[Rfam]
HIF-1 alpha IRES: a 288-nucleotide RNA from Neotoma lepida. The organism belongs to Neotoma, within Eukaryota. It is annotated as an internal ribosome entry site. The match comes from Rfam's covariance-model search (231 bits).

RNA sequence: CUCGUCCGAGGGGGACGCGAGGACUGUCCUCGCUGCCGUCGUGGGCAGUGUGUCUGGCCAGGCCCUGACAAGCGAAGCCCGCGGAGCGCCAAGGAACCGGAGCCGGAGCCCGGCGAUCGCAGCCUGCAGCUCCCGCCUCGCCGUCCCGGGGAGGGGGCGUCUCGCCUCGCACCCCCGCCUCUGGACUUGUGCCCCUUUCUCUGCGCGUGCGGACGGAACCAGCGCUUAGGCCGGAGCGAGCCCGGGGGCCGCCGGCCGGGAAGGCACCGCGGGCACCGAUUCGCUAUG
Numbered sequence: 001c002u003c004g005u006c007c008g009a010g011g012g013g014g015a016c017g018c019g020a021g022g023a024c025u026g027u028c029c030u031c032g033c034u035g036c037c038g039u040c041g042u043g044g045g046c047a048g049u050g051u052g053u054c055u056g057g058c059c060a061g062g063c064c065c066u067g068a069c070a071a072g073c074g075a076a077g078c079c080c081g082c083g084g085a086g087c088g089c090c091a092a093g094g095a096a097c098c099g100g101a102g103c104c105g106g107a108g109c110c111c112g113g114c115g116a117u118c119g120c121a122g123c124c125u126g127c128a129g130c131u132c133c134c135g136c137c138u139c140g141c142c143g144u145c146c147c148g149g150g151g152a153g154g155g156g157g158c159g160u161c162u163c164g165c166c167u168c169g170c171a172c173c174c175c176c177g178c179c180u181c182u183g184g185a186c187u188u189g190u191g192c193c194c195c196u197u198u199c200u201c202u203g204c205g206c207g208u209g210c211g212g213a214c215g216g217a218a219c220c221a222g223c224g225c226u227u228a229g230g231c232c233g234g235a236g237c238g239a240g241c242c243c244g245g246g247g248g249c250c251g252c253c254g255g256c257c258g259g260g261a262a263g264g265c266a267c268c269g270c271g272g273g274c275a276c277c278g279a280u281u282c283g284c285u286a287u288g
Base pairs, nucleotide, nucleotide: 001014002013003012017033018032019031020030021029022028035063036062037061086160087159088158090154130153131152132151133150134148187222188221189220193216194215200213201212202211232255234253236252237251238250